[Rfam]
Rfam assigns this 137-nucleotide sequence from Pipistrellus kuhlii to the family "Small nucleolar RNA SNORA46".

RNA sequence: GGCACUAUAUUUAAACCUGUGUAUGGGAAUUCUCCCCAUUCUAGGUUACGCUGUAGUGCAAAAGAAUUCCUGGCUCUUUUCUGUUGCACAGCUGAUAUUGCCAUUCUGCUGUUGCUGGAUGGGGUUAAGGAACAUAA
Number, nucleotide and partner (000 for none) at each position: 001g000002g059003c058004a057005c056006u055007a054008u053009a052010u000011u000012u000013a000014a047015a046016c045017c044018u000019g000020u000021g041022u000023a039024u038025g037026g036027g035028a000029a000030u000031u000032c000033u000034c000035c027036c026037c025038a024039u023040u000041c021042u000043a000044g017045g016046u015047u014048a000049c000050g000051c000052u009053g008054u007055a006056g005057u004058g003059c002060a000061a000062a000063a000064g000065a000066a000067u132068u131069c130070c129071u128072g126073g125074c124075u123076c122077u121078u000079u119080u118081c000082u000083g000084u000085u000086g115087c114088a113089c111090a110091g109092c108093u000094g106095a105096u000097a000098u000099u000100g000101c000102c000103a000104u000105u095106c094107u000108g092109c091110u090111g089112u000113u088114g087115c086116u000117g000118g080119a079120u000121g077122g076123g075124g074125u073126u072127a000128a071129g070130g069131a068132a067133c000134a000135u000136a000137a000
A search with the family's covariance model found it, with a score of 139 bits. The family's RNA type in Rfam is H/ACA-box small nucleolar RNA. The family has 22 seed sequences and 582 matches in Rfam 15.1.